Record summary: Shown here is a 97-nucleotide RNA sequence from Arthrobacter globiformis, a member of the family "TPP riboswitch aptamer (THI element)". The family's consensus secondary structure is taken from published work.
RNA sequence: GGGACUGACACGGGGUGCCGCGCACGGGCCGGCUGAGAUCCAAACCCGUUGAACCUGUCCGGUUAGCACCGGCGAAGGGAUGUCUUCCUUGUCAUCA
Numbered sequence: 001g002g003g004a005c006u007g008a009c010a011c012g013g014g015g016u017g018c019c020g021c022g023c024a025c026g027g028g029c030c031g032g033c034u035g036a037g038a039u040c041c042a043a044a045c046c047c048g049u050u051g052a053a054c055c056u057g058u059c060c061g062g063u064u065a066g067c068a069c070c071g072g073c074g075a076a077g078g079g080a081u082g083u084c085u086u087c088c089u090u091g092u093c094a095u096c097a
Stems, first nucleotide, its partner, number of pairs: 007084004011048004016042001017033004054078003059072004